[Rfam]
RNA sequence: UUGCUCUUCAAAAGCACUGGUUAGAGGACCCAUUAUUAUCCGAACCAGCCGUCAAAACUGAGCUAUAGAAAAUAUCUUGUUUUUGGGUGAGGUGUAUUCACUUCAGAAUGCGCCUCAAUGACACGAUGACAAUU
Dot-bracket structure: ..((((.......((.(((((....(((..........)))..)))))..)).......))))...................((((.((((((.((((.......).))).))))))....).)))........